[Rfam]
RNA sequence: UCCGUCAACUAAUGGGCUACUAGUUUUUUUACAUAAUUACAGCAGAACUAAAACUGCUUAAGUGACGGAAUAUUUUAAGAAACAUUUGGCGCUAUCAGAUGUGGCGAAAGCCUGCGGAAUAUAUUGGGUCAACAAAUUUAGCAUUUAACUGUUAGGAAUAGCGCUCCUAGCAGUUUUUU
Numbered sequence: 001u002c003c004g005u006c007a008a009c010u011a012a013u014g015g016g017c018u019a020c021u022a023g024u025u026u027u028u029u030u031a032c033a034u035a036a037u038u039a040c041a042g043c044a045g046a047a048c049u050a051a052a053a054c055u056g057c058u059u060a061a062g063u064g065a066c067g068g069a070a071u072a073u074u075u076u077a078a079g080a081a082a083c084a085u086u087u088g089g090c091g092c093u094a095u096c097a098g099a100u101g102u103g104g105c106g107a108a109a110g111c112c113u114g115c116g117g118a119a120u121a122u123a124u125u126g127g128g129u130c131a132a133c134a135a136a137u138u139u140a141g142c143a144u145u146u147a148a149c150u151g152u153u154a155g156g157a158a159u160a161g162c163g164c165u166c167c168u169a170g171c172a173g174u175u176u177u178u179u
Base pairs, nucleotide, nucleotide: 001069002068003067004066005065006064007063041058042057043056044055045054048141049140050139051138052137070122071121072120073119074118075117082102083101084100085099086098087097088096089164090163091162092161093160094159095158103112104111105110147175148174149173150172151171152170153169154168155167156166157165
Dot-bracket structure: (((((((.................................(((((..{{{{{.)))))....)))))))((((((......((((((([[[[[[[)))))))(((....)))....))))))..............}}}}}.....(((((((((((]]]]]]])))))))))))....